Rfam assigns this 81-nucleotide RNA sequence from Bos taurus to the family "Small nucleolar RNA SNORD79".
Rfam links the family to the GO terms nucleolus and RNA processing.
By type it is a C/D-box small nucleolar RNA.
A reference for the family is Galardi et al. (2002), "Purified box C/D snoRNPs are able to reproduce site-specific 2'-O-methylation of target RNA in vitro", Mol Cell Biol.
The source organism's lineage runs through Eukaryota, Dipnotetrapodomorpha, Eutheria, Bovinae and Bos.
RNA sequence: UACUGUUGGUGAUGAUUUUUAUAAUAAAACAGAUGGGAAUCUCUCUGAAAAAGAAUGAAGUUUUUAAAAACUGAAACAGUA
Number, nucleotide and partner (000 for none) at each position: 001u081002a080003c079004u078005g077006u076007u075008g000009g000010u000011g000012a000013u000014g000015a000016u000017u000018u000019u000020u000021a000022u000023a000024a000025u000026a000027a000028a000029a000030c000031a000032g000033a000034u000035g000036g000037g000038a000039a000040u000041c000042u000043c000044u000045c000046u000047g000048a000049a000050a000051a000052a000053g000054a000055a000056u000057g000058a000059a000060g000061u000062u000063u000064u000065u000066a000067a000068a000069a000070a000071c000072u000073g000074a000075a007076a006077c005078a004079g003080u002081a001
From the family's description: snoRNA U79 or Z22 is found in intron 7 of the gas5 gene in humans and is also present in mice.